[Rfam]
Shown here is an 83-nucleotide sequence from Lysobacter sp. Root494, a member of the family "SAH (S-adenosyl-L-homocysteine) riboswitch aptamer". Lineage of the source: Bacteria > Pseudomonadota > Gammaproteobacteria > Lysobacteraceae > Lysobacter. A search with the family's covariance model found it, with a score of 62 bits. Pairs were carried over by alignment from the consensus structure, which is taken from published work.

RNA sequence: CCCGCCGAGGGGCGCUGCGACCGCAUGAAGUCACCUGCGGCCAGGCUCGGCGAGGUUCCACGCAACAACGGCGCCCGUUAAUG
Numbered sequence: 001c002c003c004g005c006c007g008a009g010g011g012g013c014g015c016u017g018c019g020a021c022c023g024c025a026u027g028a029a030g031u032c033a034c035c036u037g038c039g040g041c042c043a044g045g046c047u048c049g050g051c052g053a054g055g056u057u058c059c060a061c062g063c064a065a066c067a068a069c070g071g072c073g074c075c076c077g078u079u080a081a082u083g
Base pairs, nucleotide, nucleotide: 003052004051005050006049007048008047021040022039023038024037025036